[Rfam]
RNA: RT-14 RNA
RNA sequence: CUGUAUAUAUACACCUGAUUUAAUAGUUUAAGGACUAUUAAGCAUAGAUUACAGAGAAUCAGGAGCCUUGUCCCGUCCGAUAAGGACAAAGAGUAAAAGGGAAGUAGAAUCUUAGUAAGUUUGCUGAAAGGGGUCUACUUCC
Numbered sequence: 001c002u003g004u005a006u007a008u009a010u011a012c013a014c015c016u017g018a019u020u021u022a023a024u025a026g027u028u029u030a031a032g033g034a035c036u037a038u039u040a041a042g043c044a045u046a047g048a049u050u051a052c053a054g055a056g057a058a059u060c061a062g063g064a065g066c067c068u069u070g071u072c073c074c075g076u077c078c079g080a081u082a083a084g085g086a087c088a089a090a091g092a093g094u095a096a097a098a099g100g101g102a103a104g105u106a107g108a109a110u111c112u113u114a115g116u117a118a119g120u121u122u123g124c125u126g127a128a129a130g131g132g133g134u135c136u137a138c139u140u141c142c
Stems, first nucleotide, its partner, number of pairs: 001054004012047001020041009077085002100142009110132003118125002